This 442-nucleotide RNA sequence from Croceicoccus pelagius belongs to the Rfam family "Bacterial RNase P class A".
Rfam classes the family as a ribozyme.
A search with the family's covariance model found it, with a score of 258 bits.
NCBI's taxonomy places the organism under Bacteria, Pseudomonadota, Sphingomonadales, Erythrobacteraceae, Croceicoccus.
[Rfam]
RNA sequence: CCGGGGGGCCGGGCAGCCGCGUCAUCCUCCCACGGGGGUGCCGAGGAAAGUCCGGGCUCCACGAAACAAGGGUGGCGGGUAACGCCCGCCGGGCGGUUUUCGGACCGUCAAGGGACAGUGCCACAGAGAGCAGACCGCCGAUGGACCCCAUCUCUUCGGAGCAUGGCGGUCACAGGCAAGGGUGAAAGGGUGCGGUAAAAGCGCACCGGGCGACCGGCAACGGAAGCUGCAUGGCAAACCCCACCCGGAGCAAGGCCGAAUAGGGACGGCGCGCCCGACCGUAAGGUGCAGGGCAGGGGUGUUUCGCCCCGUGAUCGUCCGGGUUGGCUGCUGGAGCCCUGCGGCAACGCAGGGCCGAGAGGAAUGGCUGCCGGCGGGGAUACGGUGCCGUAAUGGCAUACCGUCCACGUCACAGAACCCGGCUUACAGGCCCCUCGGUGCG
Numbered sequence: 001c002c003g004g005g006g007g008g009c010c011g012g013g014c015a016g017c018c019g020c021g022u023c024a025u026c027c028u029c030c031c032a033c034g035g036g037g038g039u040g041c042c043g044a045g046g047a048a049a050g051u052c053c054g055g056g057c058u059c060c061a062c063g064a065a066a067c068a069a070g071g072g073u074g075g076c077g078g079g080u081a082a083c084g085c086c087c088g089c090c091g092g093g094c095g096g097u098u099u100u101c102g103g104a105c106c107g108u109c110a111a112g113g114g115a116c117a118g119u120g121c122c123a124c125a126g127a128g129a130g131c132a133g134a135c136c137g138c139c140g141a142u143g144g145a146c147c148c149c150a151u152c153u154c155u156u157c158g159g160a161g162c163a164u165g166g167c168g169g170u171c172a173c174a175g176g177c178a179a180g181g182g183u184g185a186a187a188g189g190g191u192g193c194g195g196u197a198a199a200a201g202c203g204c205a206c207c208g209g210g211c212g213a214c215c216g217g218c219a220a221c222g223g224a225a226g227c228u229g230c231a232u233g234g235c236a237a238a239c240c241c242c243a244c245c246c247g248g249a250g251c252a253a254g255g256c257c258g259a260a261u262a263g264g265g266a267c268g269g270c271g272c273g274c275c276c277g278a279c280c281g282u283a284a285g286g287u288g289c290a291g292g293g294c295a296g297g298g299g300u301g302u303u304u305c306g307c308c309c310c311g312u313g314a315u316c317g318u319c320c321g322g323g324u325u326g327g328c329u330g331c332u333g334g335a336g337c338c339c340u341g342c343g344g345c346a347a348c349g350c351a352g353g354g355c356c357g358a359g360a361g362g363a364a365u366g367g368c369u370g371c372c373g374g375c376g377g378g379g380a381u382a383c384g385g386u387g388c389c390g391u392a393a394u395g396g397c398a399u400a401c402c403g404u405c406c407a408c409g410u411c412a413c414a415g416a417a418c419c420c421g422g423c424u425u426a427c428a429g430g431c432c433c434c435u436c437g438g439u440g441c442g
Stems, first nucleotide, its partner, number of pairs: 001438010011427001012372007020043002023040006048425003052422005057250004066304001068302001070246005075089005090112001092109007113241002118239002120235003135181002137177003142172003189207006208230001209228003214223003254329004264320006296310005336355008